[Rfam]
RNA sequence: UUGUGCUAAGCGGGGAGUUAGCGGUGCCCUGUUUCCCGAAAUCCGCUUAUGCGGGGCUGAAUUCUCUCUUUAGGGCUUAGUUUGAAACUACCCAACGCUUAGAUCGGUCGCCGCGCAACAGACGGUCGCGAACCUCGUCAGGUCCGGAAGGAAGCAGCGAUAAGCGAUUCAGGCUGUGUCGCGGAUCGAUCCCGAUCAAAAAGCAAAAGGUGGUUACAAACCGGGUUCAACAGGGAGUGCACAA
Numbered sequence: 001u002u003g004u005g006c007u008a009a010g011c012g013g014g015g016a017g018u019u020a021g022c023g024g025u026g027c028c029c030u031g032u033u034u035c036c037c038g039a040a041a042u043c044c045g046c047u048u049a050u051g052c053g054g055g056g057c058u059g060a061a062u063u064c065u066c067u068c069u070u071u072a073g074g075g076c077u078u079a080g081u082u083u084g085a086a087a088c089u090a091c092c093c094a095a096c097g098c099u100u101a102g103a104u105c106g107g108u109c110g111c112c113g114c115g116c117a118a119c120a121g122a123c124g125g126u127c128g129c130g131a132a133c134c135u136c137g138u139c140a141g142g143u144c145c146g147g148a149a150g151g152a153a154g155c156a157g158c159g160a161u162a163a164g165c166g167a168u169u170c171a172g173g174c175u176g177u178g179u180c181g182c183g184g185a186u187c188g189a190u191c192c193c194g195a196u197c198a199a200a201a202a203g204c205a206a207a208a209g210g211u212g213g214u215u216a217c218a219a220a221c222c223g224g225g226u227u228c229a230a231c232a233g234g235g236a237g238u239g240c241a242c243a244a
Base pairs, nucleotide, nucleotide: 001244002243003242004241005240006239009058010057011056012030013029014028015027017025018024019023035055036054037053038052040050064237065236066235067234068233069232073228074227075226076225077224080221081220082219083218084217086215087214088213092210093209097204098203099202102197103196104195105194106193107192111184112183113182114181115180116178117177119176120175121174123172124169125168126167127166128165129164135160136159137158138157143152144151145150